[Rfam]
RNA sequence: CUGUCCGCUUCUUGGAACAUCUGCACCGGGGUGCGGUCCGCAUGGUUACUCUGACCGCGUACACCCCUGUCAGAAGGGGUGUAAAGCCGACAGCCGUCGCAUCCCAGGGAGCUCAACCAUG
Numbered sequence: 001c002u003g004u005c006c007g008c009u010u011c012u013u014g015g016a017a018c019a020u021c022u023g024c025a026c027c028g029g030g031g032u033g034c035g036g037u038c039c040g041c042a043u044g045g046u047u048a049c050u051c052u053g054a055c056c057g058c059g060u061a062c063a064c065c066c067c068u069g070u071c072a073g074a075a076g077g078g079g080u081g082u083a084a085a086g087c088c089g090a091c092a093g094c095c096g097u098c099g100c101a102u103c104c105c106a107g108g109g110a111g112c113u114c115a116a117c118c119a120u121g
Stems, first nucleotide, its partner, number of pairs: 060083004065078004086100002089098003
RNA: Streptomyces-metH RNA